[Rfam]
RNA: U4 spliceosomal RNA
Organism: Pan troglodytes
Nucleotides: 141
Stems, first nucleotide, its partner, number of pairs: 020052002023049002026047003035041001086116002088113003092109005131140003
Number, partner (000 for none) and nucleotide at each position: 001000a002000g003000c004000u005000u006000u007000g008000a009000g010000c011000a012000g013000u014000g015000g016000c017000a018000g019000u020052a021051u022000g023049g024048u025000a026047g027046c028045c029000a030000a031000u032000g033000c034000a035041g036000u037000u038000u039000a040000u041035c042000c043000a044000a045028g046027g047026u048024g049023c050000a051021a052020u053000u054000a055000u056000u057000a058000u059000u060000a061000a062000u063000u064000g065000a066000a067000a068000a069000c070000u071000g072000u073000u074000c075000c076000c077000a078000a079000u080000a081000c082000u083000u084000c085000a086116c087115u088113g089112u090111a091000a092109u093108g094107a095106c096105u097000u098000g099000c100000g101000a102000u103000a104000u105096a106095g107094u108093c109092a110000g111090u112089a113088u114000u115087g116086g117000c118000a119000a120000u121000u122000u123000u124000u125000u126000g127000u128000u129000u130000g131140u132139u133138u134000g135000u136000u137000u138133a139132a140131g141000a